[Rfam]
RNA sequence: GGGGGGAGCACAGGAUCCUGGGUUGUGUCCCUCGGUGCCCUGGGCUCCGGGGCCUGCACCGAUGGACUCCGCUCCCGGGCCAAGCAGCCCCCU
Numbered sequence: 001g002g003g004g005g006g007a008g009c010a011c012a013g014g015a016u017c018c019u020g021g022g023u024u025g026u027g028u029c030c031c032u033c034g035g036u037g038c039c040c041u042g043g044g045c046u047c048c049g050g051g052g053c054c055u056g057c058a059c060c061g062a063u064g065g066a067c068u069c070c071g072c073u074c075c076c077g078g079g080c081c082a083a084g085c086a087g088c089c090c091c092c093u
Stems, first nucleotide, its partner, number of pairs: 001093006011084001013081002017078002020075003024071002027069001028066003033061006042054001044053003
Annotation: mir-8799 microRNA precursor family: a 93-nucleotide RNA from Nyctereutes procyonoides. Pairs were carried over by alignment from the consensus structure, which was predicted with RNAalifold. A search with the family's covariance model found it, with a score of 67 bits. Taxonomically the source falls in Nyctereutes (Eukaryota, Opisthokonta, Euteleostomi, Caniformia). Gene Ontology terms of the family: RISC complex and miRNA-mediated post-transcriptional gene silencing.